[Rfam]
RNA sequence: GCCGAUUCGGCUCGACCCCCCCGGAGCCGAAUCCUGGACGGCCCUCGUCGCCCCCCGACGGGGGCCGUCUCUU
Numbered sequence: 001g002c003c004g005a006u007u008c009g010g011c012u013c014g015a016c017c018c019c020c021c022c023g024g025a026g027c028c029g030a031a032u033c034c035u036g037g038a039c040g041g042c043c044c045u046c047g048u049c050g051c052c053c054c055c056c057g058a059c060g061g062g063g064g065c066c067g068u069c070u071c072u073u
Base pairs, nucleotide, nucleotide: 002036004033005032006031007030008029009028010027011026012025013024037069038068039067040066041065042064043063044062045061046060047059048058049057
Description
Shown here is a 73-nucleotide RNA from Mangrovihabitans endophyticus, a member of the family "6C RNA". For this family Rfam cites "Identification of 22 candidate structured RNAs in bacteria using the CMfinder comparative genomics pipeline" (Weinberg et al., Nucleic Acids Res, 2007). Taxonomically the source falls in Mangrovihabitans (Bacteria, Bacillati, Actinomycetota, Micromonosporales).